The family of this 436-nucleotide part of an RNA from Zhenpiania hominis is "Bacterial large subunit ribosomal RNA".
RNA sequence: CUCCUCGAAAUAGCUUUAGGGCUAGCCUGGAAGAGAGAUACACGGAGGUAGAGCACUGAAUGUUCUAGGGGCCUUCACCGGUUACCGAAAACUAUCAAACUCCGAAUGCCGUGCAAUCAGCUUCCGGAGUCAGACUAUGGGAGAUAAGUUUCAUAGUCGAGAGGGAAAGAGCCCAGACCUACAGCUAAGGUCCCAAAAUGUAAGUUAAGUGGAAAAGGAUGUGGAGCUGCAUAGACAGCUAGGAUGUUGGCUUAGAAGCAGCCACUCAUUCAAAGAGUGCGUAACAGCUCACUAGUCGAGUGGCUCUGCGCCGAAGAUAAACGGGGCUAAAACUUACUACCGAAGCUUAGGAUACUUUUAAGAGUAUGGUAGAGGAGCAUCGUAUACGGGCCGAAGCCAAACUGUGAGGUUUGGUGGACUGUAUAGGAGAGAGAAU
Numbered sequence: 001c002u003c004c005u006c007g008a009a010a011u012a013g014c015u016u017u018a019g020g021g022c023u024a025g026c027c028u029g030g031a032a033g034a035g036a037g038a039u040a041c042a043c044g045g046a047g048g049u050a051g052a053g054c055a056c057u058g059a060a061u062g063u064u065c066u067a068g069g070g071g072c073c074u075u076c077a078c079c080g081g082u083u084a085c086c087g088a089a090a091a092c093u094a095u096c097a098a099a100c101u102c103c104g105a106a107u108g109c110c111g112u113g114c115a116a117u118c119a120g121c122u123u124c125c126g127g128a129g130u131c132a133g134a135c136u137a138u139g140g141g142a143g144a145u146a147a148g149u150u151u152c153a154u155a156g157u158c159g160a161g162a163g164g165g166a167a168a169g170a171g172c173c174c175a176g177a178c179c180u181a182c183a184g185c186u187a188a189g190g191u192c193c194c195a196a197a198a199u200g201u202a203a204g205u206u207a208a209g210u211g212g213a214a215a216a217g218g219a220u221g222u223g224g225a226g227c228u229g230c231a232u233a234g235a236c237a238g239c240u241a242g243g244a245u246g247u248u249g250g251c252u253u254a255g256a257a258g259c260a261g262c263c264a265c266u267c268a269u270u271c272a273a274a275g276a277g278u279g280c281g282u283a284a285c286a287g288c289u290c291a292c293u294a295g296u297c298g299a300g301u302g303g304c305u306c307u308g309c310g311c312c313g314a315a316g317a318u319a320a321a322c323g324g325g326g327c328u329a330a331a332a333c334u335u336a337c338u339a340c341c342g343a344a345g346c347u348u349a350g351g352a353u354a355c356u357u358u359u360a361a362g363a364g365u366a367u368g369g370u371a372g373a374g375g376a377g378c379a380u381c382g383u384a385u386a387c388g389g390g391c392c393g394a395a396g397c398c399a400a401a402c403u404g405u406g407a408g409g410u411u412u413g414g415u416g417g418a419c420u421g422u423a424u425a426g427g428a429g430a431g432a433g434a435a436u
Base pairs, nucleotide, nucleotide: 001377002376003375004374005373006372011024012023013022014021015020026129027127028126029125030124031123032122033121037117039115041113042112043111044110045109051103052101053100057097058096059095062092063091064090068086069085070083071082072081073080133158134157135156136155137154138153139152140151141150142149163174164173165172178351179350180349181348183347184346185345189341190340191339198338200337201336202335203334204333205332217312218311221309222308223307224306225305226304227303228302229301230300238296239295240294241293242292244269245268246267249263250262251261270274275290279288280287352367353366354365355364356363357362378431380428381427383425384424385423386422387421388420389419396415397414398413399412400411401410402409403408
The source organism's lineage runs through Bacteria, Bacillota, Clostridia, Anaerovoracaceae and Zhenpiania. The family's consensus secondary structure is taken from published work.